[Rfam]
RNA sequence: CUGGGCUUUGAUACACAGUUAUGACCACAGCUUGUCAAAACUGUCAUAAAAUGCCCAAAGAGUAAAAUGUGCUUUCUGAUGACUAUGCUGUUUAAAGACCCUCAGCAUGGACAGAUACGAGGCAGACAAAA
Numbered sequence: 001c002u003g004g005g006c007u008u009u010g011a012u013a014c015a016c017a018g019u020u021a022u023g024a025c026c027a028c029a030g031c032u033u034g035u036c037a038a039a040a041c042u043g044u045c046a047u048a049a050a051a052u053g054c055c056c057a058a059a060g061a062g063u064a065a066a067a068u069g070u071g072c073u074u075u076c077u078g079a080u081g082a083c084u085a086u087g088c089u090g091u092u093u094a095a096a097g098a099c100c101c102u103c104a105g106c107a108u109g110g111a112c113a114g115a116u117a118c119g120a121g122g123c124a125g126a127c128a129a130a131a
Base pairs, nucleotide, nucleotide: 002057003056004055005054006053015044016043017042018041022037023036024035025034068125070124071123072122073121074120075119083110084109085108088105089104090103